[Rfam]
RNA: sok antitoxin (CssrC)
Organism: Trabulsiella odontotermitis
RNA sequence: GGGUGCUUGAGACUGUCUGGUCUCAGGCAAUUUGCAGGAGUCCGGAUAGUGAAAAGCCCCAGGAAGAUAGUGUUAUCCACCUGGGGCCGACACUCCCAACCCUAGCAGGUGGGAUGUUAGCCCCUUCUCUGAAAGGAGGCAAUAACAUGCUGACGAAG
Numbered sequence: 001g002g003g004u005g006c007u008u009g010a011g012a013c014u015g016u017c018u019g020g021u022c023u024c025a026g027g028c029a030a031u032u033u034g035c036a037g038g039a040g041u042c043c044g045g046a047u048a049g050u051g052a053a054a055a056g057c058c059c060c061a062g063g064a065a066g067a068u069a070g071u072g073u074u075a076u077c078c079a080c081c082u083g084g085g086g087c088c089g090a091c092a093c094u095c096c097c098a099a100c101c102c103u104a105g106c107a108g109g110u111g112g113g114a115u116g117u118u119a120g121c122c123c124c125u126u127c128u129c130u131g132a133a134a135g136g137a138g139g140c141a142a143u144a145a146c147a148u149g150c151u152g153a154c155g156a157a158g
Base pairs, nucleotide, nucleotide: 001060002059003058005057006056007055008054012050013049014048015047016046017045018044019043020042021040024038027035028034061082062081063080066076068075069074083124084123085122086121087120092117093116096113097112099110100109129149